The family of this 76-nucleotide RNA from Thermohalobacter berrensis is "Group II catalytic intron D1-D4-1". From the family's description: Group II introns are found in rRNA, tRNA and mRNA of organelles in fungi, plants and protists, and also in mRNA in bacteria. Taxonomically the source falls in Thermohalobacter (Bacteria, Bacillota, Tissierellales, Thermohalobacteraceae). Rfam links the family to the GO term Group II intron splicing.

[Rfam]
RNA sequence: CAACCUAUAUAGUGAUGUAUAGCUGAACCUUGAGAAGUCAGCAGAGGUCAUAGUACCUGUCUAAGCCUAGGAUAGU
Numbered sequence: 001c002a003a004c005c006u007a008u009a010u011a012g013u014g015a016u017g018u019a020u021a022g023c024u025g026a027a028c029c030u031u032g033a034g035a036a037g038u039c040a041g042c043a044g045a046g047g048u049c050a051u052a053g054u055a056c057c058u059g060u061c062u063a064a065g066c067c068u069a070g071g072a073u074a075g076u
Base pairs, nucleotide, nucleotide: 001025002024005022006021007020008019009018010017011016038045039044057075058074059073060072061071

For this family Rfam cites "The ins and outs of group II introns" (Bonen and Vogel, Trends Genet, 2001).